This 128-nucleotide sequence from Actinidia chinensis belongs to the Rfam family "U11 spliceosomal RNA".
Taxonomically the source falls in Actinidia chinensis (Eukaryota, Streptophytina, Euphyllophyta, Gunneridae).
By type it is a spliceosomal small nuclear RNA.
The family has 72 seed sequences and 2,595 matches in Rfam 15.1.
RNA sequence: AAAAAGGGUCGGUUGGCUAAAUAUGCCACGCCCACCCUCGAUUGGUGGGUGCUGUAUGGCUAUCAAGACAUAUGGCCGGCAUAAUUUUUGGAGUCAAACAGGGUUGGCUCGUUUCGGCUGACCCUCCA
Numbered sequence: 001a002a003a004a005a006g007g008g009u010c011g012g013u014u015g016g017c018u019a020a021a022u023a024u025g026c027c028a029c030g031c032c033c034a035c036c037c038u039c040g041a042u043u044g045g046u047g048g049g050u051g052c053u054g055u056a057u058g059g060c061u062a063u064c065a066a067g068a069c070a071u072a073u074g075g076c077c078g079g080c081a082u083a084a085u086u087u088u089u090g091g092a093g094u095c096a097a098a099c100a101g102g103g104u105u106g107g108c109u110c111g112u113u114u115c116g117g118c119u120g121a122c123c124c125u126c127c128a
Base pairs, nucleotide, nucleotide: 008080009079010078011077012076014028015027016026017025029051030050031049032048033047034046035045036044052075053074054073055072056071057070058069100125101124102123103122104121105120106119107118109117110116111115